Shown here is a 190-nucleotide RNA from Spiribacter sp. 2438, a member of the family "6S / SsrS RNA". The match comes from Rfam's covariance-model search (79 bits). The literature on the family includes a 2000 paper in Cell by Wassarman and Storz, "6S RNA regulates E. coli RNA polymerase activity". The family's consensus secondary structure is taken from published work. Lineage of the source: Bacteria > Pseudomonadati > Pseudomonadota > Ectothiorhodospiraceae > Spiribacter.
RNA sequence: GGUUGCCUGCGGCGUUCGACAACGGGCAGAUAGCAUUCUUGACCCUACAAUCAAACGCCUCAGGGGAGACGUUGGUAGUGCCACUGGUGUGCAUGUCCGCCUCGAGCGGAAAGCCUAAGGUGUCACUCGCCCUCCCCGACCUGAACCGAAGGGUUCAAGGGCGGUGUCCGUACGGCGUCGCGGGUAACCG
Dot-bracket structure: .((((((((((((((.((.................(((.(((.((...................((.((.(.(.(...((.((((.....((...(((((.....)))))..))....)))).))..)).).)).))..............)).))).)))...........))))))))))))))))..